Rfam assigns this 80-nucleotide RNA from Xenopus tropicalis to the family "mir-187 microRNA precursor family". The sequence is in the family's curated seed alignment. Taxonomically the source falls in Silurana (Eukaryota, Bilateria, Gnathostomata, Amphibia). The base pairs follow the family's consensus structure, which was predicted with RNAalifold. On this family, see Lim et al., Science 2003: "Vertebrate microRNA genes". Rfam links the family to the GO terms RISC complex and miRNA-mediated post-transcriptional gene silencing. The family has 27 seed sequences and 636 matches in Rfam 15.1.
[Rfam]
RNA sequence: UGGUAUACCUUUGGUUACAACACAGGACAUGGGAGCUUACUUGGAACCCUCGUGUCUUGUGUUGCAGCCAGUGGUGGCCA
Numbered sequence: 001u002g003g004u005a006u007a008c009c010u011u012u013g014g015u016u017a018c019a020a021c022a023c024a025g026g027a028c029a030u031g032g033g034a035g036c037u038u039a040c041u042u043g044g045a046a047c048c049c050u051c052g053u054g055u056c057u058u059g060u061g062u063u064g065c066a067g068c069c070a071g072u073g074g075u076g077g078c079c080a
Stems, first nucleotide, its partner, number of pairs: 009073001013069004018064011030052004